[Rfam]
RNA sequence: CCCGGUUCGCCGGGACGAAAUGUGGUCGGAAUUUCCGACUGAAUCGCAAG
Numbered sequence: 001c002c003c004g005g006u007u008c009g010c011c012g013g014g015a016c017g018a019a020a021u022g023u024g025g026u027c028g029g030a031a032u033u034u035c036c037g038a039c040u041g042a043a044u045c046g047c048a049a050g
Stems, first nucleotide, its partner, number of pairs: 001014005016046003024040005
Dot-bracket structure: (((((....))))).(((.....(((((.......)))))...)))....

A member of the RNA family "eL15-Euryarchaeota ribosomal protein leader", 50 nucleotides long. The literature on the family includes a 2020 paper in BMC Microbiol by Eckert and Weinberg, "Discovery of 20 novel ribosomal leader candidates in bacteria and archaea". Rfam's curators put it in the seed alignment. The base pairs follow the family's consensus structure, which is taken from published work.